[Rfam]
RNA sequence: GAAUUGACUGCGGGAGAGACCGGGCAUGCCCGGCGCCGAAGGAGCAACCGCCCCGGAAACUCUCAGGCCAAAGGACCGCAGUCGCACU
Numbered sequence: 001g002a003a004u005u006g007a008c009u010g011c012g013g014g015a016g017a018g019a020c021c022g023g024g025c026a027u028g029c030c031c032g033g034c035g036c037c038g039a040a041g042g043a044g045c046a047a048c049c050g051c052c053c054c055g056g057a058a059a060c061u062c063u064c065a066g067g068c069c070a071a072a073g074g075a076c077c078g079c080a081g082u083c084g085c086a087c088u
Base pairs, nucleotide, nucleotide: 006083007082008081009080010079011078012077013076020033021032022031023030035068036067037066038064039063042062043061044060048056049055

Shown here is an 88-nucleotide RNA from Arsenicitalea aurantiaca, a member of the family "Glycine riboswitch aptamer". The literature on the family includes a 2004 paper in Science by Mandal et al., "A glycine-dependent riboswitch that uses cooperative binding to control gene expression". NCBI's taxonomy places the organism under Bacteria, Alphaproteobacteria, Hyphomicrobiales, Devosiaceae, Arsenicitalea. About the family: This family represents the bacterial glycine riboswitch.